Record summary:
A member of the RNA family "mir-H11 microRNA precursor family" from Simplexvirus saimiriinealpha1, 68 nucleotides long. Pairs were carried over by alignment from the consensus structure, which was predicted with RNAalifold. A search with the family's covariance model found it, with a score of 76 bits.

RNA sequence: ACACGCCAGUGUCCGCACUCGGACCUAAUAAUAUAUAUUAUUAGGUCCGAGUGCGGACACUGGCGUGU
Numbered sequence: 001a002c003a004c005g006c007c008a009g010u011g012u013c014c015g016c017a018c019u020c021g022g023a024c025c026u027a028a029u030a031a032u033a034u035a036u037a038u039u040a041u042u043a044g045g046u047c048c049g050a051g052u053g054c055g056g057a058c059a060c061u062g063g064c065g066u067g068u
Stems, first nucleotide, its partner, number of pairs: 001068030
Dot-bracket structure: ((((((((((((((((((((((((((((((........))))))))))))))))))))))))))))))